This 129-nucleotide sequence from Castor canadensis belongs to the Rfam family "Small Cajal body specific RNA 4". From the family's description: scaRNAs are a specific class of small nuclear RNAs which localise to the Cajal bodies and guide the modification of RNA polymerase II transcribed spliceosomal RNAs U1, U2, U4, U5 and U12. ACA26 belongs to the H/ACA box class of guide RNAs as it has the predicted hairpin-hinge-hairpin-tail structure, conserved H/ACA-box motifs and is found associated with GAR1. Its Rfam clan is "SCARNA4 clan". A search with the family's covariance model found it, with a score of 130 bits. The family's consensus secondary structure was predicted with RNAfold.

[Rfam]
RNA sequence: ACUGGAGGACCAAGAAGGCUGAGCCUGAUGAAGCAAGACUUUGCUUAUACACUCCUCCUAGAAAAAAGCGUUGGAGAAAGCAGCCCUUAUUGGAGAAAAUCUCAGGGCUGACUGUACUACCUAAUAAUC
Numbered sequence: 001a002c003u004g005g006a007g008g009a010c011c012a013a014g015a016a017g018g019c020u021g022a023g024c025c026u027g028a029u030g031a032a033g034c035a036a037g038a039c040u041u042u043g044c045u046u047a048u049a050c051a052c053u054c055c056u057c058c059u060a061g062a063a064a065a066a067a068g069c070g071u072u073g074g075a076g077a078a079a080g081c082a083g084c085c086c087u088u089a090u091u092g093g094a095g096a097a098a099a100u101c102u103c104a105g106g107g108c109u110g111a112c113u114g115u116a117c118u119a120c121c122u123a124a125u126a127a128u129c
Stems, first nucleotide, its partner, number of pairs: 002061002004058006017045003021041003025037002068122001070120002079113002081110007092101002